[Rfam]
RNA sequence: UCGAAGCUCCAUCUACAAAUGGAUAAGAUCCUAGCCUAGUCUAUAAGAGGUUUUGAAAAGAAAAGAGCAAUAAUCAUUUUCUUGUUCUUUCAAGAGGGUAUUAUUGCUCCUUU
Numbered sequence: 001u002c003g004a005a006g007c008u009c010c011a012u013c014u015a016c017a018a019a020u021g022g023a024u025a026a027g028a029u030c031c032u033a034g035c036c037u038a039g040u041c042u043a044u045a046a047g048a049g050g051u052u053u054u055g056a057a058a059a060g061a062a063a064a065g066a067g068c069a070a071u072a073a074u075c076a077u078u079u080u081c082u083u084g085u086u087c088u089u090u091c092a093a094g095a096g097g098g099u100a101u102u103a104u105u106g107c108u109c110c111u112u113u
Stems, first nucleotide, its partner, number of pairs: 008023005061113003065109009076099002079096005